Background
Rfam assigns this 122-nucleotide sequence from Trueperella bialowiezensis to the family "FMN riboswitch aptamer (RFN element)". The base pairs follow the family's consensus structure, which is taken from published work.
[Rfam]
RNA sequence: GUGAUGCUUCGGGGUCAGUGAAAGUCUGAACCGGCGGUGAUAGUCCGCGACCCGGCCUCCGGCCGGCUGAUGAGGCGAAAUUCCUCAACCGACGGUUAAAGUCCGGAUGGGAGAAGCGAUCG
Numbered sequence: 001g002u003g004a005u006g007c008u009u010c011g012g013g014g015u016c017a018g019u020g021a022a023a024g025u026c027u028g029a030a031c032c033g034g035c036g037g038u039g040a041u042a043g044u045c046c047g048c049g050a051c052c053c054g055g056c057c058u059c060c061g062g063c064c065g066g067c068u069g070a071u072g073a074g075g076c077g078a079a080a081u082u083c084c085u086c087a088a089c090c091g092a093c094g095g096u097u098a099a100a101g102u103c104c105g106g107a108u109g110g111g112a113g114a115a116g117c118g119a120u121c122g
Base pairs, nucleotide, nucleotide: 003120005118006117007116008115009114010113016028017027018026030102031101032091033090034048035047036046037045043089044088052066053065071087072086073085074084075083093105094104095103